Nucleotides: 384
Stems, first nucleotide, its partner, number of pairs: 001380008010371001011369001012324007020051002023048005056367003060364005065225004072259004077221005082096005097110005111216002116214002118210003133155002135151006163181006183205001184203008229281004239272006251263004288307008
Number, partner (000 for none) and nucleotide at each position: 001380g002379g003378a004377g005376u006375c007374g008373g009000a010371c011369g012324g013323g014322u015321u016320g017319u018318c019000g020051c021050c022000g023048c024047g025046a026045g027044g028000g029000a030000u031000u032000c033000c034000u035000u036000c037000g038000g039000g040000a041000a042000c043000a044027c045026c046025u047024c048023g049000g050021g051020g052000a053000g054000g055000a056367a057366a058365g059000u060364c061363c062362g063361g064360g065225c066224u067223c068222c069000a070000c071000a072259g073258g074257g075256c076000a077221g078220a079219a080218c081217g082096c083095u084094g085093g086092g087000u088000a089000a090000c091000c092086c093085c094084c095083a096082g097110a098109g099108g100107g101106a102000g103000c104000g105000a106101u107100c108099c109098c110097u111216g112215g113000a114000c115000a116214g117213c118210g119209c120208c121000a122000c123000a124000g125000a126000a127000a128000g129000c130000a131000a132000a133155c134154c135151g136150c137149c138148c139147g140146c141000c142000a143000u144000g145000u146140g147139c148138g149137g150136g151135u152000a153000a154134g155133g156000g157000u158000g159000a160000a161000a162000c163181g164180g165179u166178g167177g168176g169000g170000u171000a172000a173000g174000a175000g176168c177167c178166c179165a180164c181163c182000a183205g184203a185202c186201g187200u188199c189198g190197c191196g192000g193000u194000g195000a196191c197190g198189c199188g200187g201186c202185g203184u204000g205183c206000u207000c208120g209119g210118u211000a212000a213117g214116c215112c216111c217081c218080g219079u220078u221077c222068g223067g224066a225065g226000c227000a228000a229281g230280a231279c232278c233000a234000a235000a236000u237000a238000g239272g240271g241270g242269g243268a244267c245000g246000c247000u248000u249000g250000a251263g252262g253261c254260u255000g256075g257074c258073c259072c260254g261253g262252c263251c264000g265000a266000a267244g268243u269242c270241c271240c272239c273000g274000g275000g276000u277000a278232g279231g280230u281229u282000g283000c284000u285000u286000g287000a288307g289306g290305c291304g292303c293302g294301u295300c296000g297000u298000g299000a300295g301294g302293c303292g304291c305290g306289u307288c308000c309000u310000a311000g312000a313000g314000g315000a316000a317000u318018g319017a320016c321015g322014a323013c324012c325000a326000c327000c328000c329000c330000c331000g332000c333000c334000u335000c336000c337000u338000u339000c340000g341000g342000g343000a344000a345000g346000g347000c348000g349000a350000g351000g352000g353000a354000a355000c356000a357000g358000a359000a360064c361063c362062c363061g364060g365058c366057u367056u368000a369011c370000a371010g372000g373008c374007c375006g376005g377004c378003u379002c380001c381000c382000c383000u384000u
Shown here is a 384-nucleotide RNA from Megalodesulfovibrio gigas, a member of the family "Bacterial RNase P class A". Taxonomically the source falls in Megalodesulfovibrio gigas (Bacteria, Thermodesulfobacteriota, Desulfovibrionales, Megalodesulfovibrio). Pairs were carried over by alignment from the consensus structure, which is taken from published work. From the family's description: Ribonuclease P (RNase P) is a ubiquitous endoribonuclease, found in archaea, bacteria and eukarya as well as chloroplasts and mitochondria. Its best characterised activity is the generation of mature 5'-ends of tRNAs by cleaving the 5'-leader elements of precursor-tRNAs. Cellular RNase Ps are ribonucleoproteins. RNA from bacterial RNase Ps retains its catalytic activity in the absence of the protein subunit, i.e. it is a ribozyme.